[Rfam]
RNA sequence: UGUAUUAGUAUAGGUACUCAAGGGUGGUUGGCUCACUUCCUGAAAGGGGGUGGUGCCUGUGUCAGUAGCUGAAAGUCUGAUGUUUGCAAUAGCGUUUGCAACUUUAGUCGUUUUGAUAUUGUCCUUUAACCAAAAAAAAUAACCCAUCCUUGAGUUAGCAGCCAAGAUGGGUUAUUUCUCACUAUUUACGCUGACACCCUUGUAGGGAACCUGCUAUUACAUGACUGAAUGGUGCUGGUUACACCAUUC
Numbered sequence: 001u002g003u004a005u006u007a008g009u010a011u012a013g014g015u016a017c018u019c020a021a022g023g024g025u026g027g028u029u030g031g032c033u034c035a036c037u038u039c040c041u042g043a044a045a046g047g048g049g050g051u052g053g054u055g056c057c058u059g060u061g062u063c064a065g066u067a068g069c070u071g072a073a074a075g076u077c078u079g080a081u082g083u084u085u086g087c088a089a090u091a092g093c094g095u096u097u098g099c100a101a102c103u104u105u106a107g108u109c110g111u112u113u114u115g116a117u118a119u120u121g122u123c124c125u126u127u128a129a130c131c132a133a134a135a136a137a138a139a140u141a142a143c144c145c146a147u148c149c150u151u152g153a154g155u156u157a158g159c160a161g162c163c164a165a166g167a168u169g170g171g172u173u174a175u176u177u178c179u180c181a182c183u184a185u186u187u188a189c190g191c192u193g194a195c196a197c198c199c200u201u202g203u204a205g206g207g208a209a210c211c212u213g214c215u216a217u218u219a220c221a222u223g224a225c226u227g228a229a230u231g232g233u234g235c236u237g238g239u240u241a242c243a244c245c246a247u248u249c
Stems, first nucleotide, its partner, number of pairs: 001221004007215003011193003014189002017154008026144004033053003037050005061123001063121005075087002097115002100112001164179001166177001197207002227249008
Shown here is a 249-nucleotide RNA sequence from Paenisporosarcina antarctica, a member of the family "BsrG". The family's RNA type in Rfam is small RNA. A search with the family's covariance model found it, with a score of 96 bits. From the family's description: bsrE, bsrG and bsrH pair through intermolecular interactions with antisense sRNAs. They form type I toxin/antitoxin system that includes an mRNA encoding for a short, toxic peptide (bsrE, bsrG and bsrH) and an antitoxin that is comprised of an antisense RNA. bsrG encodes a 39-amino-acid toxin, and the 180 nucleotide antisense sRNA called SR4 acts as the antitoxin (they overlap by 123 nucleotides). SR4 interaction with the 3'UTR of bsrG RNA promotes bsrG degradation and inhibits its translation. BsrG interferes with cell envelope biosynthesis, causes membrane invaginations and delocalisation of the cell wall synthesis and initiates autolysis. bsrE RNA encodes 30 amino-acid toxin peptide. Taxonomically the source falls in Paenisporosarcina (Bacteria, Bacillati, Bacillota, Bacilli). The family has 6 seed sequences and 614 matches in Rfam 15.1. The family's consensus secondary structure was predicted with WAR. Gene Ontology terms of the family: autolysis and toxin activity.